[Rfam]
A member of the RNA family "L31-Actinobacteria ribosomal protein leader" from Streptomyces sp. NRRL B-1381, 48 nucleotides long. The sequence is in the family's curated seed alignment. The base pairs follow the family's consensus structure, which is taken from published work. NCBI's taxonomy places the organism under Bacteria, Actinomycetes, Kitasatosporales, Streptomycetaceae, Streptomyces.
RNA sequence: UCGGCCCCGGUUCACGGCCCCGCACUUCCGCGUGGACGACCCGGCGCC
Numbered sequence: 001u002c003g004g005c006c007c008c009g010g011u012u013c014a015c016g017g018c019c020c021c022g023c024a025c026u027u028c029c030g031c032g033u034g035g036a037c038g039a040c041c042c043g044g045c046g047c048c
Stems, first nucleotide, its partner, number of pairs: 003048003007044004015038002018035002021032003